Overview: Shown here is a 141-nucleotide RNA sequence from Dufourea novaeangliae, a member of the family "U4 spliceosomal RNA".

RNA sequence: AGCUUUGCGCAGUGGCGAUAUCGUAACCAAUGAGGUUCUACCGAGGUGCGAUUAUUGCUAGUUGAAAACUUUUACCAAUACCCCGCCAUGACGAUGUGAAAUACCAUCGGCUACGGCAAUUUUUGAAAGUUUCUACGGAAA
Numbered sequence: 001a002g003c004u005u006u007g008c009g010c011a012g013u014g015g016c017g018a019u020a021u022c023g024u025a026a027c028c029a030a031u032g033a034g035g036u037u038c039u040a041c042c043g044a045g046g047u048g049c050g051a052u053u054a055u056u057g058c059u060a061g062u063u064g065a066a067a068a069c070u071u072u073u074a075c076c077a078a079u080a081c082c083c084c085g086c087c088a089u090g091a092c093g094a095u096g097u098g099a100a101a102u103a104c105c106a107u108c109g110g111c112u113a114c115g116g117c118a119a120u121u122u123u124u125g126a127a128a129g130u131u132u133c134u135a136c137g138g139a140a141a
Stems, first nucleotide, its partner, number of pairs: 020052005026047003034042003085117003090111001092109005130141004
The base pairs follow the family's consensus structure, which is taken from published work. NCBI's taxonomy places the organism under Eukaryota, Bilateria, Endopterygota, Halictidae, Dufourea.